Small nucleolar RNA Z266: a 92-nucleotide RNA from Ananas comosus. Taxonomically the source falls in Ananas (Eukaryota, Tracheophyta, Petrosaviidae, Bromelioideae). A reference for the family is Chen et al. (2003), "The high diversity of snoRNAs in plants: identification and comparative study of 120 snoRNA genes from Oryza sativa", Nucleic Acids Res. The base pairs follow the family's consensus structure, which was predicted with PFOLD. Gene Ontology terms of the family: RNA processing and nucleolus. The family has 11 seed sequences and 719 matches in Rfam 15.1. By type it is a C/D-box small nucleolar RNA.

RNA sequence: AGUGUGCAAGUGUGAUGAAUCAAUUAUGUGAAAGAAGAGAAGCGUCUCUUAUGAAUUUCAUUUUAAGCUUAUUAAUAUUCUGACUUGCUAUU
Numbered sequence: 001a002g003u004g005u006g007c008a009a010g011u012g013u014g015a016u017g018a019a020u021c022a023a024u025u026a027u028g029u030g031a032a033a034g035a036a037g038a039g040a041a042g043c044g045u046c047u048c049u050u051a052u053g054a055a056u057u058u059c060a061u062u063u064u065a066a067g068c069u070u071a072u073u074a075a076u077a078u079u080c081u082g083a084c085u086u087g088c089u090a091u092u
Stems, first nucleotide, its partner, number of pairs: 001092003006088005